Overview:
Rfam assigns this 251-nucleotide sequence from Penicillium ucsense to the family "Small nucleolar RNA snR191". By type it is an H/ACA-box small nucleolar RNA. Lineage of the source: Eukaryota > Fungi > Pezizomycotina > Aspergillaceae > Penicillium. The match comes from Rfam's covariance-model search (59 bits). Rfam links the family to the GO terms RNA processing and nucleolus.
RNA sequence: UUCCAUCGCUAAGUCAAGGCUUCUUCCUGCGGCAUUUUGCCGUUCAUUUCUUUCAAUGGAGGUCCGUCUGUUACAGCUUUGGUAGAUUGACAAUGUCCCGCACCAACCCUCUUUCUGAGGCGAGGUUGACCGGUCUUCGUUUUGAAGGCUAGUCGUAAGGGACAUAUGUGUUUUGUUUAAGAGUUGAGUUCUACUUCUGCCUAUUCUUUGGUGGCUUGAUAGUUGAACUCUUAGUAACAUCCCACACAUCC
Numbered sequence: 001u002u003c004c005a006u007c008g009c010u011a012a013g014u015c016a017a018g019g020c021u022u023c024u025u026c027c028u029g030c031g032g033c034a035u036u037u038u039g040c041c042g043u044u045c046a047u048u049u050c051u052u053u054c055a056a057u058g059g060a061g062g063u064c065c066g067u068c069u070g071u072u073a074c075a076g077c078u079u080u081g082g083u084a085g086a087u088u089g090a091c092a093a094u095g096u097c098c099c100g101c102a103c104c105a106a107c108c109c110u111c112u113u114u115c116u117g118a119g120g121c122g123a124g125g126u127u128g129a130c131c132g133g134u135c136u137u138c139g140u141u142u143u144g145a146a147g148g149c150u151a152g153u154c155g156u157a158a159g160g161g162a163c164a165u166a167u168g169u170g171u172u173u174u175g176u177u178u179a180a181g182a183g184u185u186g187a188g189u190u191c192u193a194c195u196u197c198u199g200c201c202u203a204u205u206c207u208u209u210g211g212u213g214g215c216u217u218g219a220u221a222g223u224u225g226a227a228c229u230c231u232u233a234g235u236a237a238c239a240u241c242c243c244a245c246a247c248a249u250c251c
Stems, first nucleotide, its partner, number of pairs: 003082003017069004023062005029043005093165006102126002108120004133149007168245003174239003186230004193223003197214005203208001